A member of the RNA family "GA-cis RNA", 90 nucleotides long. The base pairs follow the family's consensus structure, which is taken from published work. It is one of the family's seed sequences.

RNA sequence: AAGAGAAGGAAUCGUUAUGUGCAAAGCACAUAAUUGAGAAUCGAUUCCGACGACUUGCCGCCGAGCGUAAGCGAGGGGGCAUUACAUAUU
Numbered sequence: 001a002a003g004a005g006a007a008g009g010a011a012u013c014g015u016u017a018u019g020u021g022c023a024a025a026g027c028a029c030a031u032a033a034u035u036g037a038g039a040a041u042c043g044a045u046u047c048c049g050a051c052g053a054c055u056u057g058c059c060g061c062c063g064a065g066c067g068u069a070a071g072c073g074a075g076g077g078g079g080c081a082u083u084a085c086a087u088a089u090u
Stems, first nucleotide, its partner, number of pairs: 008048006016032006057080003061076002065072002